[Rfam]
RNA sequence: CAGCGAUACCUCAUGGGAGGGUGAGAACUCUCGUUGGGUUCGCGCCGAGCCUCGCGAGACAACAUCGCGUAGCGAUGGCCCGAAGGGAAGGCGCUAGCGCCGUAUAAUCCCUCCCUCACCGCCA
Numbered sequence: 001c002a003g004c005g006a007u008a009c010c011u012c013a014u015g016g017g018a019g020g021g022u023g024a025g026a027a028c029u030c031u032c033g034u035u036g037g038g039u040u041c042g043c044g045c046c047g048a049g050c051c052u053c054g055c056g057a058g059a060c061a062a063c064a065u066c067g068c069g070u071a072g073c074g075a076u077g078g079c080c081c082g083a084a085g086g087g088a089a090g091g092c093g094c095u096a097g098c099g100c101c102g103u104a105u106a107a108u109c110c111c112u113c114c115c116u117c118a119c120c121g122c123c124a
Stems, first nucleotide, its partner, number of pairs: 015115007022107001034086001039084004046056002063077006
Dot-bracket structure: ..............((((((((...........(....((((...((.......))......((((((...))))))...)))).)....................).))))))).........
This 124-nucleotide sequence from Corallincola holothuriorum belongs to the Rfam family "RtT RNA". From the family's description: This family represents a bacterial cis-regulatory element known as RtT RNA. The exact function of RtT is unknown although it is thought that it may be involved in changing the cellular response in relation to amino acid starvation. The family's consensus secondary structure is taken from published work. A reference for the family is Bosl and Kersten (1991), "A novel RNA product of the tyrT operon of Escherichia coli", Nucleic Acids Res. A search with the family's covariance model found it, with a score of 82 bits. The family has 57 seed sequences and 651 matches in Rfam 15.1. Lineage of the source: Bacteria > Pseudomonadati > Pseudomonadota > Alteromonadales > Corallincola.